A member of the RNA family "Small nucleolar RNA U6-53/MBII-28" from Gadus morhua, 110 nucleotides long.
RNA sequence: CUCCGAUGAUGAUUCCGCCAUGCUAAUACCGAUGCUCCAGGUCAGAUGUGUGUCUGCCUGGUGCACGUGAGUUCAACCUACCUUCUCACUGUACAAGUGGGCUGAGGAGA
Numbered sequence: 001c002u003c004c005g006a007u008g009a010u011g012a013u014u015c016c017g018c019c020a021u022g023c024u025a026a027u028a029c030c031g032a033u034g035c036u037c038c039a040g041g042u043c044a045g046a047u048g049u050g051u052g053u054c055u056g057c058c059u060g061g062u063g064c065a066c067g068u069g070a071g072u073u074c075a076a077c078c079u080a081c082c083u084u085c086u087c088a089c090u091g092u093a094c095a096a097g098u099g100g101g102c103u104g105a106g107g108a109g110a
Stems, first nucleotide, its partner, number of pairs: 001109004043056004
By type it is a C/D-box small nucleolar RNA.